[Rfam]
RNA: Mammalian CPEB3 ribozyme
Organism: Alligator mississippiensis
RNA sequence: AUUGCAAGUUCAAGGCUAUGGCAGAAGCACUCACAGGGUGGCCCUGUCAGAUUCCAGCAAAUCUGAAAAUUCUGCU
Numbered sequence: 001a002u003u004g005c006a007a008g009u010u011c012a013a014g015g016c017u018a019u020g021g022c023a024g025a026a027g028c029a030c031u032c033a034c035a036g037g038g039u040g041g042c043c044c045u046g047u048c049a050g051a052u053u054c055c056a057g058c059a060a061a062u063c064u065g066a067a068a069a070u071u072c073u074g075c076u
Stems, first nucleotide, its partner, number of pairs: 014043004020076007027039002048065006